[Rfam]
RNA: Alphaproteobacterial ar14
Organism: Fuscibacter oryzae
RNA sequence: AUCUUUGGCGAGGGUCCUCUCCUCCUCCCUGGACCCUUCGGCAAGGCGCGGCGACAUCUCUCCUCCUCCCUGAUGUCGCCGCCUUUUUAUAGACUUCGACCGGCCCUCUCCUCCUCCCUGGGCCGCUCGGAUAC
Numbered sequence: 001a002u003c004u005u006u007g008g009c010g011a012g013g014g015u016c017c018u019c020u021c022c023u024c025c026u027c028c029c030u031g032g033a034c035c036c037u038u039c040g041g042c043a044a045g046g047c048g049c050g051g052c053g054a055c056a057u058c059u060c061u062c063c064u065c066c067u068c069c070c071u072g073a074u075g076u077c078g079c080c081g082c083c084u085u086u087u088u089a090u091a092g093a094c095u096u097c098g099a100c101c102g103g104c105c106c107u108c109u110c111c112u113c114c115u116c117c118c119u120g121g122g123c124c125g126c127u128c129g130g131a132u133a134c
Stems, first nucleotide, its partner, number of pairs: 008042002011037007049081010097129003101125006